[Rfam]
RNA sequence: CCACUUGACAACGACGAGCUCAUCUCCUACAUUGUGGUUGGCCUCAACAUGGAUUACCAGCCGCUCGUCUCCGCCCUCGACGCACGCGCCGAACCUGUCACCCUUGACAAAUUGUUUUCUCAGAUGGGCAACUUUGAUC
Numbered sequence: 001c002c003a004c005u006u007g008a009c010a011a012c013g014a015c016g017a018g019c020u021c022a023u024c025u026c027c028u029a030c031a032u033u034g035u036g037g038u039u040g041g042c043c044u045c046a047a048c049a050u051g052g053a054u055u056a057c058c059a060g061c062c063g064c065u066c067g068u069c070u071c072c073g074c075c076c077u078c079g080a081c082g083c084a085c086g087c088g089c090c091g092a093a094c095c096u097g098u099c100a101c102c103c104u105u106g107a108c109a110a111a112u113u114g115u116u117u118u119c120u121c122a123g124a125u126g127g128g129c130a131a132c133u134u135u136g137a138u139c
Stems, first nucleotide, its partner, number of pairs: 005137004088108001090106003
Record summary
A member of the RNA family "Small nucleolar RNA Z247" from Hordeum vulgare, 139 nucleotides long. The base pairs follow the family's consensus structure, which was predicted with PFOLD. The match comes from Rfam's covariance-model search (39 bits).